[Rfam]
RNA sequence: CGACCAGGCCGGGCCCCUCUGGCAGCGCCACGCGCUGCGAUGUCGGACUGGGUGU
Numbered sequence: 001c002g003a004c005c006a007g008g009c010c011g012g013g014c015c016c017c018u019c020u021g022g023c024a025g026c027g028c029c030a031c032g033c034g035c036u037g038c039g040a041u042g043u044c045g046g047a048c049u050g051g052g053u054g055u
Base pairs, nucleotide, nucleotide: 006049007048009046010045011044012043022038023037024036025035026034027033
RNA: terC RNA